MIR403 microRNA precursor family: a 95-nucleotide RNA from Acer yangbiense.
For this family Rfam cites "High throughput approaches reveal splicing of primary microRNA transcripts and tissue specific expression of mature microRNAs in Vitis vinifera" (Mica et al., BMC Genomics, 2009).
Gene Ontology terms of the family: miRNA-mediated post-transcriptional gene silencing and RISC complex.
The family has 13 seed sequences and 215 matches in Rfam 15.1.
A search with the family's covariance model found it, with a score of 71 bits.
Lineage of the source: Eukaryota > Tracheophyta > Spermatophyta > Hippocastanoideae > Acer.
RNA sequence: ACAUAUCUCGGGUUUGUUCGUGAAUUUAAUAAAUACCCACUUCAUGUCUUGAUUUCGGAUGAUGUUAGAUUCACGCACAAACUCGUGAUCUGUCU
Numbered sequence: 001a002c003a004u005a006u007c008u009c010g011g012g013u014u015u016g017u018u019c020g021u022g023a024a025u026u027u028a029a030u031a032a033a034u035a036c037c038c039a040c041u042u043c044a045u046g047u048c049u050u051g052a053u054u055u056c057g058g059a060u061g062a063u064g065u066u067a068g069a070u071u072c073a074c075g076c077a078c079a080a081a082c083u084c085g086u087g088a089u090c091u092g093u094c095u
Stems, first nucleotide, its partner, number of pairs: 001093003005089003011083007019075008028066003042059001